RNA sequence: CCCUUCUUUCCAAAAAGCAUCGUGCUAAAAUCAUGGGUGUAGAGCCAUGUGGCUUAGCAUCCCGUGUUCAUGCUAGCAUCGGUAUUCUAAAGAAGGGAGAGAAGAGGCACAGAGUUGGCUAUGAGGUGGGGAGGGACCUCUUUCUUAAUGUCCAGUGUCCUCAUCCUCAAGAUUUGGUGCCACAGAA
Number, nucleotide and partner (000 for none) at each position: 001c000002c000003c000004u000005u000006c000007u000008u000009u000010c000011c000012a000013a000014a000015a000016a000017g000018c000019a000020u082021c081022g000023u078024g077025c076026u075027a074028a000029a000030a071031u070032c000033a068034u000035g000036g062037g061038u000039g058040u057041a000042g055043a054044g053045c052046c051047a000048u000049g000050u000051g046052g045053c044054u043055u042056a000057g040058c039059a000060u000061c037062c036063c000064g000065u000066g000067u000068u033069c000070a031071u030072g000073c000074u027075a026076g025077c024078a023079u000080c000081g021082g020083u000084a000085u000086u000087c000088u000089a000090a000091a000092g000093a000094a000095g000096g000097g000098a000099g000100a000101g000102a000103a000104g000105a000106g181107g180108c179109a178110c177111a000112g175113a174114g173115u000116u000117g000118g000119c000120u000121a000122u000123g000124a000125g000126g000127u000128g000129g158130g000131g156132a000133g000134g153135g152136a151137c000138c000139u000140c000141u000142u000143u000144c000145u000146u000147a000148a000149u000150g000151u136152c135153c134154a000155g000156u131157g000158u129159c000160c000161u000162c000163a000164u000165c000166c000167u000168c000169a000170a000171g000172a000173u114174u113175u112176g000177g110178u109179g108180c107181c106182a000183c000184a000185g000186a000187a000
Rfam assigns this 187-nucleotide RNA sequence from Clupea harengus to the family "Small nucleolar RNA SNORA81". The family's consensus secondary structure was predicted with WAR. The match comes from Rfam's covariance-model search (76 bits). NCBI's taxonomy places the organism under Eukaryota, Metazoa, Bilateria, Vertebrata, Clupea.